[Rfam]
Rfam assigns this 418-nucleotide part of an RNA from Alexandrium catenella to the family "Eukaryotic large subunit ribosomal RNA".
RNA sequence: AAGCGUGAAGUGAAGCACAUAAACCUGCUGAAUUUAAGCAUAUAAGUAAGUGGUGGAAAUUAAACCAACUGGGAUCUCUUCAGUAAUUGCGCAUGAACCAGGAUAUGCUUAGCUUGACAAAUGGAGCUGCUGGCUCUGAAUUGUAUUGUGGGAAUGUAUUACCAACAGAGGUGCAGGUGUCAGCCAUUUGAAAGAAAGCAUCAAUGAGGGUGAGAGUCCUGUUUGUCAUGUGCAGCCUUCUGUGCACGGUGUAUAUUUGCUGAGUCACACUCCUUGGCAUUGGAAUGCAAAGUGGGUGGUAAGUUUCAUGCAAAGGUAAAUAUGCAAUUGAGACUGAUAGCGCACAAGUACCAUGAGGGACAUAUGAAAAGGACUUUGAAAAGAGAAUUAAAUGAGUUUGUAUUUGCUAAACACAAAG
Dot-bracket structure: .......................((((((.....((....))......))))).).........((....))....(((......((.....)).....))).....((.....((..(..((((((.....))))))..)..)).......((((((.((((.(((((((.(((.(((...(.(.((......)).))..(...)..((.......)).......))).)))..)).)))))....)))))))).)).........((.(((........))).))......(.(((........))).)..))...................................((....))...............((((....)))).................................
Rfam's curators put it in the seed alignment. Taxonomically the source falls in Alexandrium (Eukaryota, Sar, Dinophyceae, Pyrocystaceae).